A member of the RNA family "U1 spliceosomal RNA" from Otolemur garnettii, 162 nucleotides long. By type it is a spliceosomal small nuclear RNA. Its family is annotated with pre-mRNA 5'-splice site binding, U1 snRNP and mRNA 5'-splice site recognition in the Gene Ontology. A search with the family's covariance model found it, with a score of 82 bits.

[Rfam]
RNA sequence: AAAACCUGACAGGGGGAGAUACCUUGAUCACAAAGGUGGUUUUCCCAGGGCAAAGUUUAUCCACUGCACUUAGAUCUGCUGACCCGUGUGAUUACUUCAAAUUUGAGACACUUGACUGCAUUAUUUGUGGCAGCUGGGGGACUGUAUUUGUGCCCUUCCCUG
Numbered sequence: 001a002a003a004a005c006c007u008g009a010c011a012g013g014g015g016g017a018g019a020u021a022c023c024u025u026g027a028u029c030a031c032a033a034a035g036g037u038g039g040u041u042u043u044c045c046c047a048g049g050g051c052a053a054a055g056u057u058u059a060u061c062c063a064c065u066g067c068a069c070u071u072a073g074a075u076c077u078g079c080u081g082a083c084c085c086g087u088g089u090g091a092u093u094a095c096u097u098c099a100a101a102u103u104u105g106a107g108a109c110a111c112u113u114g115a116c117u118g119c120a121u122u123a124u125u126u127g128u129g130g131c132a133g134c135u136g137g138g139g140g141a142c143u144g145u146a147u148u149u150g151u152g153c154c155c156u157u158c159c160c161u162g
Stems, first nucleotide, its partner, number of pairs: 010118003013046001015045005021040003025036001047087001049085002054080003059075002062073001089114003092110001093108001096106002136160004141156001144153003
Background
The family's consensus secondary structure is taken from published work.